[Rfam]
Background:
The family of this 126-nucleotide RNA sequence from Campylobacter sp. MIT 12-5580 is "Ribosomal S15 leader". Rfam describes the family as follows. The E. coli Ribosomal S15 gene 5' UTR can form two alternative structures. One that is a series of three hairpins, The other includes a pseudoknot. This structure causes translational regulation of the S15 protein. The base pairs follow the family's consensus structure, which is taken from published work. A search with the family's covariance model found it, with a score of 40 bits. Rfam links the family to the GO term regulation of translation, ncRNA-mediated. Rfam classes the family as a cis-regulatory leader. The literature on the family includes a 1996 paper in Biochimie by Benard et al., "Pseudoknot and translational control in the expression of the S15 ribosomal protein". Its Rfam clan is "Ribosomal Protein S15 Leader clan".

RNA sequence: AAUUUCAGCUUUAUUUAGGUUUUUUAGGCUAUAAUUACACUUUUUUAAAAUACCAAUCAGGAGGUCAAAAUGGCUUUGGAUUCGGCUCAAAAAGCUCAAAUUGUUGCGAAAUUCGCUAGAAAAGAA
Numbered sequence: 001a002a003u004u005u006c007a008g009c010u011u012u013a014u015u016u017a018g019g020u021u022u023u024u025u026a027g028g029c030u031a032u033a034a035u036u037a038c039a040c041u042u043u044u045u046u047a048a049a050a051u052a053c054c055a056a057u058c059a060g061g062a063g064g065u066c067a068a069a070a071u072g073g074c075u076u077u078g079g080a081u082u083c084g085g086c087u088c089a090a091a092a093a094g095c096u097c098a099a100a101u102u103g104u105u106g107c108g109a110a111a112u113u114c115g116c117u118a119g120a121a122a123a124g125a126a
Stems, first nucleotide, its partner, number of pairs: 007030005053079002060077004